RNA sequence: GGUCGGGAGGCCCAACAAAUACAACACCUGCAUGCAGGAAAUAGUUGGGGCAGUGCCUUGUGCUGUUUUCACCCUCCUGACCGCCAUUUC
Dot-bracket structure: (((((((((..((((..(........(((......)))...)..))))((((((.......))))))......)))))))))........